Rfam assigns this 86-nucleotide sequence from Ricinus communis to the family "Small nucleolar RNA Z122". The source organism's lineage runs through Eukaryota, Embryophyta, Euphorbiaceae, Acalyphoideae and Ricinus. The sequence is in the family's curated seed alignment. The literature on the family includes a 2003 paper in Nucleic Acids Res by Chen et al., "The high diversity of snoRNAs in plants: identification and comparative study of 120 snoRNA genes from Oryza sativa". By type it is a C/D-box small nucleolar RNA.
RNA sequence: GUUGGGAAAUGAUGAGAAGUUAUCUCAAGUUAUCAAAGGCACUAGCUGUGCUGAAUGUCUUAUUUGCACGUCAGUCUGAUCCCAAA
Numbered sequence: 001g002u003u004g005g006g007a008a009a010u011g012a013u014g015a016g017a018a019g020u021u022a023u024c025u026c027a028a029g030u031u032a033u034c035a036a037a038g039g040c041a042c043u044a045g046c047u048g049u050g051c052u053g054a055a056u057g058u059c060u061u062a063u064u065u066g067c068a069c070g071u072c073a074g075u076c077u078g079a080u081c082c083c084a085a086a
Stems, first nucleotide, its partner, number of pairs: 002085006